RNA: terC RNA
RNA sequence: UGCGCGGGCCGGGCCCCUCUGGCGCGUCGUCAACAUGGCGAUGCGUGAUGUCGGACCGCCAGG
Numbered sequence: 001u002g003c004g005c006g007g008g009c010c011g012g013g014c015c016c017c018u019c020u021g022g023c024g025c026g027u028c029g030u031c032a033a034c035a036u037g038g039c040g041a042u043g044c045g046u047g048a049u050g051u052c053g054g055a056c057c058g059c060c061a062g063g
Stems, first nucleotide, its partner, number of pairs: 006057002009054004022046010